[Rfam]
RNA: c-di-AMP riboswitch aptamer (ydaO/yuaA leader)
RNA sequence: AGCUUAAUUCGGCCUAAUCUCGAAACGAGAGCGGAGGAACCAAUCAAUUGGGGUUAAUUUUGUACACAGUACAGAAGGGAUGAGAAUGCUCUUUCGCCAUCCUACCCGUCAGCUAACUUCGUCGGCUAAAGCGAAGGAGGUC
Dot-bracket structure: ..........((((...(((.......)))((((((....((......))(((.....((((.........))))..((((.................))))..))).........)))))).))))...............